RNA: Peptidase-S11 RNA
RNA sequence: GUUAUGAUGGCGUCGCUAGCCUCAGUAAAUCCUUACUCCGGCGGUGCGCAACCCGUGCGCGUGAACCACUAUCUGAAUGCU
Number, nucleotide and partner (000 for none) at each position: 001g000002u000003u000004a000005u000006g000007a000008u000009g000010g000011c000012g000013u000014c000015g045016c044017u043018a000019g042020c041021c040022u000023c000024a037025g036026u035027a034028a000029a000030u000031c000032c000033u000034u027035a026036c025037u024038c000039c000040g021041g020042c019043g017044g016045u015046g060047c059048g058049c057050a056051a000052c000053c000054c000055g000056u050057g049058c048059g047060c046061g000062u000063g000064a000065a000066c000067c000068a000069c000070u000071a000072u000073c000074u000075g000076a000077a000078u000079g000080c000081u000